[Rfam]
RNA sequence: UUUGCAUAUGAUGAGAAGGACAUGAACAUCUGCUGCACUCCUUAGAAAAUCAGGGAUGCAAUAACAUGAUGACUUUGUCUAGGGGAAUCUCUGAUGCCGC
Numbered sequence: 001u002u003u004g005c006a007u008a009u010g011a012u013g014a015g016a017a018g019g020a021c022a023u024g025a026a027c028a029u030c031u032g033c034u035g036c037a038c039u040c041c042u043u044a045g046a047a048a049a050u051c052a053g054g055g056a057u058g059c060a061a062u063a064a065c066a067u068g069a070u071g072a073c074u075u076u077g078u079c080u081a082g083g084g085g086a087a088u089c090u091c092u093g094a095u096g097c098c099g100c
Base pairs, nucleotide, nucleotide: 002099004097005096006095
A member of the RNA family "Small nucleolar RNA R44/J54/Z268 family" from Zizania palustris, 100 nucleotides long. The base pairs follow the family's consensus structure, which was predicted with PFOLD. Rfam links the family to the GO terms RNA processing and nucleolus. By type it is a C/D-box small nucleolar RNA. The source organism's lineage runs through Eukaryota, Viridiplantae, Magnoliopsida, Poaceae and Zizania.